RNA sequence: GGCGGUCUUCGGUAGUGGCUGCCGGGCCCCAAUCUCAACCCGGGGAGUGCCCGGCCGCUUCGAUCGACGGCCGUA
Numbered sequence: 001g002g003c004g005g006u007c008u009u010c011g012g013u014a015g016u017g018g019c020u021g022c023c024g025g026g027c028c029c030c031a032a033u034c035u036c037a038a039c040c041c042g043g044g045g046a047g048u049g050c051c052c053g054g055c056c057g058c059u060u061c062g063a064u065c066g067a068c069g070g071c072c073g074u075a
Stems, first nucleotide, its partner, number of pairs: 002074006009067005017059003021055007029047001
Rfam assigns this 75-nucleotide sequence from Mycolicibacterium anyangense to the family "Actino-pnp RNA".
The base pairs follow the family's consensus structure, which is taken from published work.
The source organism's lineage runs through Bacteria, Actinomycetota, Mycobacteriales, Mycobacteriaceae and Mycobacterium (subgen. Mycolicibacterium).
The match comes from Rfam's covariance-model search (57 bits).